[Rfam]
Rfam assigns this 145-nucleotide RNA from Mus spicilegus to the family "Small nucleolar RNA SNORA17". snoRNA ACA 17 belongs to the H/ACA family of snoRNAs and is predicted to guide pseudouridylation of the 28S rRNA at positions U4659 and U4598. It shares the same host gene together with ACA43. The family's consensus secondary structure was predicted with RNAalifold. Its Rfam clan is "SNORA17 clan". The literature on the family includes a 1997 paper in J Mol Biol by Ofengand and Bakin, "Mapping to nucleotide resolution of pseudouridine residues in large subunit ribosomal RNAs from representative eukaryotes, prokaryotes, archaebacteria, mitochondria and chloroplasts". Rfam 15.1 lists 5,784 matches to the family in 673 species.

RNA sequence: CCUGUCUCAAAAAGAAAAAGUGGUAUUAUAGAUGUGGCUACUUUGUUGCAUGUGUGACAGUAGGUGGCAGAGAAGAGAGAGGCUGUUAUGUUGAUGCUCAGUGUUCCUGACCUAGGAACCUAUGAAUGCUUAGUAGCCUAACAUC
Numbered sequence: 001c002c003u004g005u006c007u008c009a010a011a012a013a014g015a016a017a018a019a020g021u022g023g024u025a026u027u028a029u030a031g032a033u034g035u036g037g038c039u040a041c042u043u044u045g046u047u048g049c050a051u052g053u054g055u056g057a058c059a060g061u062a063g064g065u066g067g068c069a070g071a072g073a074a075g076a077g078a079g080a081g082g083c084u085g086u087u088a089u090g091u092u093g094a095u096g097c098u099c100a101g102u103g104u105u106c107c108u109g110a111c112c113u114a115g116g117a118a119c120c121u122a123u124g125a126a127u128g129c130u131u132a133g134u135a136g137c138c139u140a141a142c143a144u145c
Stems, first nucleotide, its partner, number of pairs: 002070005007064002010061001022058001024056001028055003033050006077142001080139007095128002098125003103119004